[Rfam]
RNA sequence: AGCACUAUUUUUAAACCUGUUGGUGGCAUUUCCUGACCACUGUGGGUUACGCUGUAGUGCAAAAGAAUCUCCUGGCUCUUGUGAGCACAGCUGAGUGCUCUGUGCAGCUGAUGCUCCUCUGAAGCUAAGGAACAGGA
Number, nucleotide and partner (000 for none) at each position: 001a000002g060003c059004a058005c057006u056007a055008u054009u000010u000011u000012u000013a000014a048015a047016c046017c045018u000019g000020u000021u042022g041023g040024u039025g038026g037027c000028a000029u000030u000031u000032c000033c000034u000035g000036a000037c026038c025039a024040c023041u022042g021043u000044g000045g017046g016047u015048u014049a000050c000051g000052c000053u000054g008055u007056a006057g005058u004059g003060c002061a000062a000063a000064a000065g000066a000067a000068u132069c000070u131071c130072c129073u128074g126075g125076c124077u123078c000079u121080u000081g119082u000083g000084a000085g114086c113087a112088c110089a109090g108091c107092u000093g105094a000095g000096u000097g000098c000099u000100c000101u000102g000103u000104g000105c093106a000107g091108c090109u089110g088111a000112u087113g086114c085115u000116c000117c000118u000119c081120u000121g079122a000123a077124g076125c075126u074127a000128a073129g072130g071131a070132a068133c000134a000135g000136g000137a000

Background
This 137-nucleotide RNA from Calypte anna belongs to the Rfam family "Small nucleolar RNA SNORA46". Gene Ontology terms of the family: RNA processing and nucleolus. Rfam describes the family as follows. ACA46 is a member of the H/ACA class of snoRNA that guide the sites of modification of uridines to pseudouridines. Taxonomically the source falls in Calypte (Eukaryota, Tetrapoda, Sauria, Coelurosauria).